The record is an 82-nucleotide RNA sequence from Stagnimonas aquatica, which matches "tRNA" in Rfam. Its family is annotated with triplet codon-amino acid adaptor activity in the Gene Ontology. The match comes from Rfam's covariance-model search (52 bits).
RNA sequence: GCCGACGUGGUGGAAUUGGUAGACACACUACCUUGAGGUGGUAGCGGCGAAAGCUAUGCGAGUUCGAGUCUCGCCGUCGGUA
Numbered sequence: 001g002c003c004g005a006c007g008u009g010g011u012g013g014a015a016u017u018g019g020u021a022g023a024c025a026c027a028c029u030a031c032c033u034u035g036a037g038g039u040g041g042u043a044g045c046g047g048c049g050a051a052a053g054c055u056a057u058g059c060g061a062g063u064u065c066g067a068g069u070c071u072c073g074c075c076g077u078c079g080g081u082a
Stems, first nucleotide, its partner, number of pairs: 001081007010026003028044005058074005